RNA sequence: UUUUAACUUAAGAGGCAACUCUUAACUGGCCAUCCAGGGAAAAAACCGAGAGGUUCAAGCUUGGAGGGCAGAAAGCUUCACGGAGUAGCGCUAAAAUCGUGAGGUGGUCAUGGCAUGGCAGUAGCGCAUACAAUGACGUGCCAA
Numbered sequence: 001u002u003u004u005a006a007c008u009u010a011a012g013a014g015g016c017a018a019c020u021c022u023u024a025a026c027u028g029g030c031c032a033u034c035c036a037g038g039g040a041a042a043a044a045a046c047c048g049a050g051a052g053g054u055u056c057a058a059g060c061u062u063g064g065a066g067g068g069c070a071g072a073a074a075g076c077u078u079c080a081c082g083g084a085g086u087a088g089c090g091c092u093a094a095a096a097u098c099g100u101g102a103g104g105u106g107g108u109c110a111u112g113g114c115a116u117g118g119c120a121g122u123a124g125c126g127c128a129u130a131c132a133a134u135g136a137c138g139u140g141c142c143a144a
Base pairs, nucleotide, nucleotide: 008025009024010023011022012021013020014019026071027070028069030068031067033065034064035063036062037061038060044055045054046053047052075105076104077103078102079101080100081099082098088127089126090125091124092123112142113141114140115139116138117137119135120134

The record is a 144-nucleotide RNA, which matches "IMES-2 RNA motif" in Rfam. The base pairs follow the family's consensus structure, which is taken from published work.